[Rfam]
RNA: Bacterial RNase P class B
RNA sequence: CAAAUCGGAUGAUCGCGCGAUGAAAGACUCGUGAGGAAGGUCCAUGCCCGCCCAAUCUGAGAUGAUUGGAGUGUUUGUACUGAGCCCAAUAAGCGAAGGCAGUAUUUAACUGACGGCUAGCGAAAGGACUAAAGCUUAGCCAUGUCUGAUUAACUUAUAAAAGUGCUAUAGCGACGAAUAACCGGGAAACCGGGGAAGUGAGACGACGUAAACCCUGCAAGCGGGCAACCCAAACUUUUUGGUAGGGGCGGUCAAUUUGGCUAAAUGAAGUAAAAAUUGACACCGGUUUUAUCCGGUAGAUAGAUGAUCGUCGAAGAACGUGAUCGCCAAUCUCGUUUGGAACAUAACAUGGCCUAUAGAU
Numbered sequence: 001c002a003a004a005u006c007g008g009a010u011g012a013u014c015g016c017g018c019g020a021u022g023a024a025a026g027a028c029u030c031g032u033g034a035g036g037a038a039g040g041u042c043c044a045u046g047c048c049c050g051c052c053c054a055a056u057c058u059g060a061g062a063u064g065a066u067u068g069g070a071g072u073g074u075u076u077g078u079a080c081u082g083a084g085c086c087c088a089a090u091a092a093g094c095g096a097a098g099g100c101a102g103u104a105u106u107u108a109a110c111u112g113a114c115g116g117c118u119a120g121c122g123a124a125a126g127g128a129c130u131a132a133a134g135c136u137u138a139g140c141c142a143u144g145u146c147u148g149a150u151u152a153a154c155u156u157a158u159a160a161a162a163g164u165g166c167u168a169u170a171g172c173g174a175c176g177a178a179u180a181a182c183c184g185g186g187a188a189a190c191c192g193g194g195g196a197a198g199u200g201a202g203a204c205g206a207c208g209u210a211a212a213c214c215c216u217g218c219a220a221g222c223g224g225g226c227a228a229c230c231c232a233a234a235c236u237u238u239u240u241g242g243u244a245g246g247g248g249c250g251g252u253c254a255a256u257u258u259g260g261c262u263a264a265a266u267g268a269a270g271u272a273a274a275a276a277u278u279g280a281c282a283c284c285g286g287u288u289u290u291a292u293c294c295g296g297u298a299g300a301u302a303g304a305u306g307a308u309c310g311u312c313g314a315a316g317a318a319c320g321u322g323a324u325c326g327c328c329a330a331u332c333u334c335g336u337u338u339g340g341a342a343c344a345u346a347a348c349a350u351g352g353c354c355u356a357u358a359g360a361u
Base pairs, nucleotide, nucleotide: 004361005360006359007357008312009311010310011309012308013307014306016033017032018031019030020029038355039354040353042352043351044350045349046348047225048224049223050222051221052069053068054067055066056065057064075220076219077218078217079216080098081097084094085093099114100112101111102110103109115215116214119155120154126147127146128145129144134140135139163213164212165209166208182193183192184191185190229247230246231245251281252280253279254278255277256276257275282297283296284295285294286293316338317337318336319335320334322332323331324330